The record is a 158-nucleotide sequence from Erwinia billingiae, which matches "STAXI RNA" in Rfam.
It scores 76 bits against the family's covariance model.
The source organism's lineage runs through Bacteria, Pseudomonadati, Pseudomonadota, Gammaproteobacteria and Erwinia.

RNA sequence: UGUUGUUGUCUCAACAACCAACCAAUGUUUCAGCAGCCUGAGAGAGACGCUUACGCGGUUGCCAUCUAAAACUUCAUGACCUGAGAGAAGUGCUGCUUUUGCAGUGGUCGAUCCGCUCAACCUCUUAAUGCGGAUAUCACCUGUGUGAUGAGGUUCUU
Numbered sequence: 001u002g003u004u005g006u007u008g009u010c011u012c013a014a015c016a017a018c019c020a021a022c023c024a025a026u027g028u029u030u031c032a033g034c035a036g037c038c039u040g041a042g043a044g045a046g047a048c049g050c051u052u053a054c055g056c057g058g059u060u061g062c063c064a065u066c067u068a069a070a071a072c073u074u075c076a077u078g079a080c081c082u083g084a085g086a087g088a089a090g091u092g093c094u095g096c097u098u099u100u101g102c103a104g105u106g107g108u109c110g111a112u113c114c115g116c117u118c119a120a121c122c123u124c125u126u127a128a129u130g131c132g133g134a135u136a137u138c139a140c141c142u143g144u145g146u147g148a149u150g151a152g153g154u155u156c157u158u
Stems, first nucleotide, its partner, number of pairs: 002018006027048005033062006049056002073088002077110005092105005114133001117130001119155006136149005